[Rfam]
A member of the RNA family "Guanidine-I riboswitch aptamer" from Pseudoneobacillus rhizosphaerae, 135 nucleotides long. About the family: This family represents a conserved RNA structure found upstream of the ykkC and yxkD genes in Bacillus subtilis and related genes in other bacteria. The function of this family is unclear although it has been suggested that it may function to switch on efflux pumps and detoxification systems in response to harmful environmental molecules. Its family is annotated with regulation of gene expression in the Gene Ontology. Pairs were carried over by alignment from the consensus structure. The match comes from Rfam's covariance-model search (78 bits).
RNA sequence: GUAAAAGUUUUCUAGGGUUCCGCAUUUUGUGAGAGGGUUUAACUUACUUACAAAAGAAUGGUCUGGUCCGAGAGAAAACUCACAACUUCUGACAAAUCAGCAACUGUGCCACGGAGGGAUAAAAGCCCGGGAGAU
Numbered sequence: 001g002u003a004a005a006a007g008u009u010u011u012c013u014a015g016g017g018u019u020c021c022g023c024a025u026u027u028u029g030u031g032a033g034a035g036g037g038u039u040u041a042a043c044u045u046a047c048u049u050a051c052a053a054a055a056g057a058a059u060g061g062u063c064u065g066g067u068c069c070g071a072g073a074g075a076a077a078a079c080u081c082a083c084a085a086c087u088u089c090u091g092a093c094a095a096a097u098c099a100g101c102a103a104c105u106g107u108g109c110c111a112c113g114g115a116g117g118g119a120u121a122a123a124a125g126c127c128c129g130g131g132a133g134a135u
Stems, first nucleotide, its partner, number of pairs: 007079006015069002020066002022063001023060006081108004087102001110130001112133001116128003